[Rfam]
RNA sequence: UGCGGCGACCGGGCCCCUCUGGCGAGAGUCCGACCCUCUCGUGAUGUCGGCGCCACCG
Number, nucleotide and partner (000 for none) at each position: 001u000002g000003c000004g000005g000006c052007g051008a000009c050010c049011g048012g047013g000014c000015c000016c000017c000018u000019c000020u000021g000022g042023c041024g040025a039026g038027a037028g036029u000030c000031c000032g000033a000034c000035c000036c028037u027038c026039u025040c024041g023042u022043g000044a000045u000046g000047u012048c011049g010050g009051c007052g006053c000054c000055a000056c000057c000058g000
About this RNA:
terC RNA: a 58-nucleotide sequence from Alsobacter soli. Rfam 15.1 lists 1,112 matches to the family in 772 species.